[Rfam]
RNA sequence: GAAGUCCCACAUGAGCAAAGUGUAGCCAACAGCUCAUUAGCGAAAUCCACGGGCCAACCCGAUGACGGGAGUCUGAAGCUGGAUGGAGCAAGAAUGUAGGCCCUGUAUUGAGCCCCGUAAAAUGUAUAGUUGUGGACCACAAGGAUAAGCACUGUAUAUGCGGUGCGAAAGCCGACGCGCUGAAUUACGUGGAAGGCAGCAAACUCAUAUGCGCUAUGGCGAGUAUAUGAGUUUCCACCGGGGUCUGAGACCA
Numbered sequence: 001g002a003a004g005u006c007c008c009a010c011a012u013g014a015g016c017a018a019a020g021u022g023u024a025g026c027c028a029a030c031a032g033c034u035c036a037u038u039a040g041c042g043a044a045a046u047c048c049a050c051g052g053g054c055c056a057a058c059c060c061g062a063u064g065a066c067g068g069g070a071g072u073c074u075g076a077a078g079c080u081g082g083a084u085g086g087a088g089c090a091a092g093a094a095u096g097u098a099g100g101c102c103c104u105g106u107a108u109u110g111a112g113c114c115c116c117g118u119a120a121a122a123u124g125u126a127u128a129g130u131u132g133u134g135g136a137c138c139a140c141a142a143g144g145a146u147a148a149g150c151a152c153u154g155u156a157u158a159u160g161c162g163g164u165g166c167g168a169a170a171g172c173c174g175a176c177g178c179g180c181u182g183a184a185u186u187a188c189g190u191g192g193a194a195g196g197c198a199g200c201a202a203a204c205u206c207a208u209a210u211g212c213g214c215u216a217u218g219g220c221g222a223g224u225a226u227a228u229g230a231g232u233u234u235c236c237a238c239c240g241g242g243g244u245c246u247g248a249g250a251c252c253a
Base pairs, nucleotide, nucleotide: 012036013035014034015033016032020030021029023222025220026219038091040089041088045084046083047082050075051074052073053072054071058069059068060067061066109247110245112244113243114242115241116240117239132238133237134236135235136234171197172196173195176191177190178189179188202233203232204231205230206229207228208227209226210225211224212223
This 253-nucleotide RNA from Olavius sp. associated proteobacterium Delta 1 belongs to the Rfam family "Group II catalytic intron D1-D4-6". About the family: Group II introns are found in rRNA, tRNA and mRNA of organelles in fungi, plants and protists, and also in mRNA in bacteria. It scores 111 bits against the family's covariance model. Taxonomically the source falls in Deltaproteobacteria (Bacteria, delta/epsilon subdivisions). The base pairs follow the family's consensus structure.